[Rfam]
Background: This 298-nucleotide RNA sequence from Teratosphaeria destructans belongs to the Rfam family "Group I catalytic intron". NCBI's taxonomy places the organism under Eukaryota, Fungi, Dikarya, Pezizomycotina, Teratosphaeria. The literature on the family includes a 1990 paper in Annu Rev Biochem by Cech, "Self-splicing of group I introns". The match comes from Rfam's covariance-model search (105 bits). Group I catalytic introns are large self-splicing ribozymes. They catalyse their own excision from mRNA, tRNA and rRNA precursors in a wide range of organisms. The core secondary structure consists of 9 paired regions (P1-P9). These fold to essentially two domains - the P4-P6 domain (formed from the stacking of P5, P4, P6 and P6a helices) and the P3-P9 domain (formed from the P8, P3, P7 and P9 helices).
RNA sequence: AGUGGAAGUUAACCUUCUGCUGAUUUUUUUUUUAAGACAAAAAAAAUGAAACCAUCAAAUUGCGGGAACGCCCUAAAGCAAUUUCAACCAAGCAGACAUGGUAACAUGAUCUGUGGCACAGGUAAUCACUCGUGGUAAGGUAAAAUCGAAAUUGAUGCACGAAAGGAAAUGGGUAAUCCGCAGCCAAGUUCCAUAUUUGAUAAUAUGGAAUGCAGUUCAUCGACUAAACGUUGGUUGGCAUUGAACGAAAAAAAAGUUAAUGCUUAAGAUAUAGUCAGGCCUCAUUCGAGAGAAUGCA
Numbered sequence: 001a002g003u004g005g006a007a008g009u010u011a012a013c014c015u016u017c018u019g020c021u022g023a024u025u026u027u028u029u030u031u032u033u034a035a036g037a038c039a040a041a042a043a044a045a046a047u048g049a050a051a052c053c054a055u056c057a058a059a060u061u062g063c064g065g066g067a068a069c070g071c072c073c074u075a076a077a078g079c080a081a082u083u084u085c086a087a088c089c090a091a092g093c094a095g096a097c098a099u100g101g102u103a104a105c106a107u108g109a110u111c112u113g114u115g116g117c118a119c120a121g122g123u124a125a126u127c128a129c130u131c132g133u134g135g136u137a138a139g140g141u142a143a144a145a146u147c148g149a150a151a152u153u154g155a156u157g158c159a160c161g162a163a164a165g166g167a168a169a170u171g172g173g174u175a176a177u178c179c180g181c182a183g184c185c186a187a188g189u190u191c192c193a194u195a196u197u198u199g200a201u202a203a204u205a206u207g208g209a210a211u212g213c214a215g216u217u218c219a220u221c222g223a224c225u226a227a228a229c230g231u232u233g234g235u236u237g238g239c240a241u242u243g244a245a246c247g248a249a250a251a252a253a254a255a256g257u258u259a260a261u262g263c264u265u266a267a268g269a270u271a272u273a274g275u276c277a278g279g280c281c282u283c284a285u286u287c288g289a290g291a292g293a294a295u296g297c298a
Stems, first nucleotide, its partner, number of pairs: 001021007050236005056230001061182006071173003183216002188211004195204003220277001222276005238263007283296005